[Rfam]
RNA: M-box riboswitch aptamer (ykoK leader)
Organism: Levilactobacillus bambusae
RNA sequence: AAGAGAAGCUGUUAGGUGAGGCUCCUAUACGGAAAAUGCUACUACUCAGAAACGUCGAGAAACGCCAAUGAGUCAGCAGUUUAUGUCAAAGCAAGGCAUAAACUAACGUAGCUGUUACAAUUGCUUGUAACUACGCCGUAUAGUGCUAAAACUCAACGAUUGGCUAAAAGU
Numbered sequence: 001a002a003g004a005g006a007a008g009c010u011g012u013u014a015g016g017u018g019a020g021g022c023u024c025c026u027a028u029a030c031g032g033a034a035a036a037u038g039c040u041a042c043u044a045c046u047c048a049g050a051a052a053c054g055u056c057g058a059g060a061a062a063c064g065c066c067a068a069u070g071a072g073u074c075a076g077c078a079g080u081u082u083a084u085g086u087c088a089a090a091g092c093a094a095g096g097c098a099u100a101a102a103c104u105a106a107c108g109u110a111g112c113u114g115u116u117a118c119a120a121u122u123g124c125u126u127g128u129a130a131c132u133a134c135g136c137c138g139u140a141u142a143g144u145g146c147u148a149a150a151a152c153u154c155a156a157c158g159a160u161u162g163g164c165u166a167a168a169a170g171u
Stems, first nucleotide, its partner, number of pairs: 007165004011157002013094001015153003020147003025143008038112005044073005053064003079103004085097003114131005